[Rfam]
Nucleotides: 062
Base pairs, nucleotide, nucleotide: 003058004057005056006055007054009025010024011023012022028059034049035048036047037046038045039044
Number, partner (000 for none) and nucleotide at each position: 001000a002000u003058c004057g005056u006055u007054c008000a009025u010024c011023u012022g013000c014000u015000u016000a017000a018000c019000a020000g021000u022012c023011a024010g025009a026000c027000g028059g029000a030000a031000g032000u033000a034049a035048g036047a037046a038045g039044u040000a041000a042000u043000g044039g045038c046037u047036u048035c049034u050000g051000a052000a053000g054007g055006a056005a057004c058003g059028c060000g061000c062000c
The record is a 62-nucleotide RNA sequence from Cyanobacterium aponinum, which matches "Glutamine riboswitch aptamer (glnA leader)" in Rfam. The organism belongs to Cyanobacterium aponinum, within Bacteria.